A member of the RNA family "Burkholderia sRNA 54" from Trinickia symbiotica, 77 nucleotides long.
[Rfam]
RNA sequence: CCGUCUCUCAGGUUCUAGCACGGCCCUCGGAAUGGCUAGAACUUCUUUACGACGCCACUUCGGUGGCGUCUUUUUUU
Numbered sequence: 001c002c003g004u005c006u007c008u009c010a011g012g013u014u015c016u017a018g019c020a021c022g023g024c025c026c027u028c029g030g031a032a033u034g035g036c037u038a039g040a041a042c043u044u045c046u047u048u049a050c051g052a053c054g055c056c057a058c059u060u061c062g063g064u065g066g067c068g069u070c071u072u073u074u075u076u077u
Base pairs, nucleotide, nucleotide: 010044011043012042013041014040015039016038017037018036019035024030025029051070052069053068054067055066056065057064058063
The match comes from Rfam's covariance-model search (76 bits). By type it is a small RNA. Rfam's curators write: Identified by RNA-seq, RACE and Northern blot. Strongly expressed in biofilm. The family's consensus secondary structure was predicted with RNAfold. Rfam 15.1 lists 91 matches to the family in 60 species. Gene Ontology term of the family: bacterial biofilm matrix. Lineage of the source: Bacteria > Pseudomonadati > Burkholderiales > Burkholderiaceae > Trinickia.